Source information
The record is a 58-nucleotide RNA from Mycobacterium talmoniae, which matches "F6 TB sRNA" in Rfam. The base pairs follow the family's consensus structure, which is taken from published work. The source organism's lineage runs through Bacteria, Actinomycetota, Actinomycetes, Mycobacteriales and Mycobacterium. It scores 58 bits against the family's covariance model. The literature on the family includes a 2009 paper in Mol Microbiol by Arnvig and Young, "Identification of small RNAs in Mycobacterium tuberculosis".

[Rfam]
RNA sequence: CGGACAGCUCCGUGUUGCCAUCCAACCCCCCGACCCGAUGGCAACACGGAGCUUCCCA
Numbered sequence: 001c002g003g004a005c006a007g008c009u010c011c012g013u014g015u016u017g018c019c020a021u022c023c024a025a026c027c028c029c030c031c032g033a034c035c036c037g038a039u040g041g042c043a044a045c046a047c048g049g050a051g052c053u054u055c056c057c058a
Stems, first nucleotide, its partner, number of pairs: 002057002007052016